Shown here is a 142-nucleotide sequence from Mesobacillus boroniphilus, a member of the family "Group II catalytic intron D1-D4-4". It scores 106 bits against the family's covariance model. The pairing is the family consensus, mapped onto this sequence. The organism belongs to Mesobacillus boroniphilus, within Bacteria. Rfam links the family to the GO term Group II intron splicing. A reference for the family is Bonen and Vogel (2001), "The ins and outs of group II introns", Trends Genet. Rfam 15.1 lists 840 matches to the family in 506 species. Group II introns are found in rRNA, tRNA and mRNA of organelles in fungi, plants and protists, and also in mRNA in bacteria.

[Rfam]
RNA sequence: UAGUUGGUGAAAGUCCAAUCUGAGUAAGUGACAAGACGCUCAGUAGCUGACAGGCAGCUGGUGGAGAAAUCCUAAGGUUGAAGCCCUGUGACAAAGUAACUCCCUUUCAGGAGUGCGAGCGACCUGACAGGUUGUAACAUAA
Dot-bracket structure: ...................(((((..............)))))......((((((((((....((....))....)))))....)))))......(..(((((......))))).)..(((...........))).......